[Rfam]
RNA sequence: GCCUCAUCUUCUGCAGUGCCAGAGAUGAGGU
Numbered sequence: 001g002c003c004u005c006a007u008c009u010u011c012u013g014c015a016g017u018g019c020c021a022g023a024g025a026u027g028a029g030g031u
Stems, first nucleotide, its partner, number of pairs: 001031007009024005014018001